[Rfam]
RNA: MicC RNA
Organism: Salmonella enterica
RNA sequence: CCUGUUAUAUGCCUUUAUUGUCACAUAUUCAUUUUGUCGUUGGGCCAUUGCGUUAACCUUUGCUUUCCAGCGUAUAAAUUGACAAGCCCGAACGGAUGUUCGGGCUUUUUUUGUCUAUGGA
Numbered sequence: 001c002c003u004g005u006u007a008u009a010u011g012c013c014u015u016u017a018u019u020g021u022c023a024c025a026u027a028u029u030c031a032u033u034u035u036g037u038c039g040u041u042g043g044g045c046c047a048u049u050g051c052g053u054u055a056a057c058c059u060u061u062g063c064u065u066u067c068c069a070g071c072g073u074a075u076a077a078a079u080u081g082a083c084a085a086g087c088c089c090g091a092a093c094g095g096a097u098g099u100u101c102g103g104g105c106u107u108u109u110u111u112u113g114u115c116u117a118u119g120g121a
Base pairs, nucleotide, nucleotide: 007021008020009019010017011016039071040070041069042068043067044066081109082108084107085106086105087104088103089102090101091100092099093098